Rfam assigns this 104-nucleotide RNA sequence from Mycolicibacterium tokaiense to the family "mraW RNA". Rfam 15.1 lists 851 matches to the family in 821 species. Pairs were carried over by alignment from the consensus structure, which is taken from published work. Taxonomically the source falls in Mycobacterium (subgen. Mycolicibacterium) (Bacteria, Actinomycetota, Mycobacteriaceae, Mycobacterium).

[Rfam]
RNA sequence: ACGUGUCCGUGCCACGUGGCCUCUGUCCGAGCCGACCCUGGCGUACUUCCCCGACGCCAGGUUCUCGCUCUCGGGCAGGGACCUCGGGGCAGGGGCCGUGGGCC
Numbered sequence: 001a002c003g004u005g006u007c008c009g010u011g012c013c014a015c016g017u018g019g020c021c022u023c024u025g026u027c028c029g030a031g032c033c034g035a036c037c038c039u040g041g042c043g044u045a046c047u048u049c050c051c052c053g054a055c056g057c058c059a060g061g062u063u064c065u066c067g068c069u070c071u072c073g074g075g076c077a078g079g080g081a082c083c084u085c086g087g088g089g090c091a092g093g094g095g096c097c098g099u100g101g102g103c104c
Stems, first nucleotide, its partner, number of pairs: 010091004015086002018083002021080011032067001034064002037061008
Dot-bracket structure: .........((((.((.((.((((((((((((.((.((((((((.........)))))))).))..)..))))))))))).)).)).)))).............